[Rfam]
Nucleotides: 272
Stems, first nucleotide, its partner, number of pairs: 001159008011145004017045007047102005055096003062089005067082006106140003113133005163183001186269001189267004193209005214260003217256005223249002230243005
Number, partner (000 for none) and nucleotide at each position: 001159g002158g003157a004156g005155a006154c007153u008152u009000g010000a011145a012144g013143g014142g015000a016000g017045c018044c019043c020042u021041c022040u023039c024000u025000a026000g027000u028000a029000c030000g031000a032000g033000a034000g035000g036000a037000c038000c039023g040022a041021g042020a043019g044018g045017g046000a047102c048101g049100u050099a051098c052000c053000u054000c055096u056095g057094g058000u059000g060000u061000u062089c063088c064087g065086g066085u067082u068081g069080u070079u071078c072077c073000g074000c075000c076000a077072g078071g079070a080069g081068c082067a083000g084000u085066g086065c087064c088063g089062g090000g091000u092000a093000g094057c095056u096055a097000u098051g099050u100049a101048c102047g103000g104000a105000c106140g107139g108138g109000a110000u111000a112000a113133c114132c115131g116130c117129u118000g119000a120000a121000g122000g123000c124000a125000u126000c127000u128000a129117a130116g131115c132114g133113g134000g135000a136000a137000g138108c139107c140106c141000a142014c143013c144012c145011u146000a147000a148000g149000a150000u151000g152008a153007g154006g155005u156004c157003u158002c159001c160000c161000g162000u163183g164000a165000u166000a167000g168000u169000c170000c171000g172000a173000a174000a175000g176000g177000g178000c179000u180000a181000u182000c183163c184000c185000u186269g187000a188000a189267g190266g191265c192264c193209c194208c195207u196206c197205g198000g199000a200000g201000a202000c203000u204000a205197c206196g207195a208194g209193g210000u211000u212000g213000a214260u215259a216258g217256g218255c219254c220253g221252g222000a223249g224248g225000u226000g227000g228000a229000a230243g231242c232241u233240c234239a235000g236000c237000a238000a239234u240233g241232g242231g243230u244000g245000a246000a247000g248224c249223u250000g251000a252221c253220c254219g255218g256217u257000a258216c259215u260214a261000a262000u263000c264192g265191g266190c267189c268000g269186u270000g271000u272000g
Shown here is a 272-nucleotide part of an RNA from Candidatus Desulfofervidus auxilii, a member of the family "Bacterial large subunit ribosomal RNA".
The match comes from Rfam's covariance-model search (2986 bits).